The family of this 57-nucleotide sequence from Homo sapiens is "mir-1471 microRNA precursor family".
The organism belongs to Homo, within Eukaryota.
RNA sequence: GCCCGCGUGUGGAGCCAGGUGUAGAGGCGGAGCACAGCUGGCUCUAAUUUGAGGGGC
Dot-bracket structure: ((((.....(((((((((.(((...........))).))))))))).......))))

Pairs were carried over by alignment from the consensus structure, which was predicted with RNAalifold. Its family is annotated with miRNA-mediated post-transcriptional gene silencing and RISC complex in the Gene Ontology.